The family of this 92-nucleotide RNA sequence from Parvularcula mediterranea is "TPP riboswitch aptamer (THI element)". The base pairs follow the family's consensus structure, which is taken from published work.
RNA sequence: AUCCUCGCCGAGGGGCACCCCGCCGGGGUUGAGAUGUACCCUUAGAACCUGAUCCGGUUAGGACCGGCGGAGGAACGGCCAUGACAGCCACU
Numbered sequence: 001a002u003c004c005u006c007g008c009c010g011a012g013g014g015g016c017a018c019c020c021c022g023c024c025g026g027g028g029u030u031g032a033g034a035u036g037u038a039c040c041c042u043u044a045g046a047a048c049c050u051g052a053u054c055c056g057g058u059u060a061g062g063a064c065c066g067g068c069g070g071a072g073g074a075a076c077g078g079c080c081a082u083g084a085c086a087g088c089c090a091c092u
Base pairs, nucleotide, nucleotide: 007079008078009077010076011042012041013040014039016036017029018028019027020026021025048073049072050071054067055066056065057064
NCBI's taxonomy places the organism under Bacteria, Pseudomonadota, Alphaproteobacteria, Parvularculales, Parvularcula.